[Rfam]
The family of this 185-nucleotide RNA sequence from Salvia splendens is "MIR168 microRNA precursor family". Its family is annotated with RISC complex and miRNA-mediated post-transcriptional gene silencing in the Gene Ontology. A reference for the family is Reinhart et al. (2002), "MicroRNAs in plants", Genes Dev. Pairs were carried over by alignment from the consensus structure, which was predicted with WAR.

RNA sequence: GUUGCGGCGUCCUCUAGUUCGCUUGGUGCAGGUCGGGAACUUUAUUCGACGAUUGCGUCGCAUUUUGCGUUAAAUUUGGGCUAACUAUGCCCUCCAAUCGUACAUCGUACAUAUGCGAUUGCCGUUGUAUUUGGCGAAUAUCAGGUUCCUGCCUUGCAUCAACUGAAUCGGAGGCCGCGGUGAAU
Dot-bracket structure: ............((..((((..((((((((((.(((((.((......................................................................................................)).))))).))))))))))..))))..)).............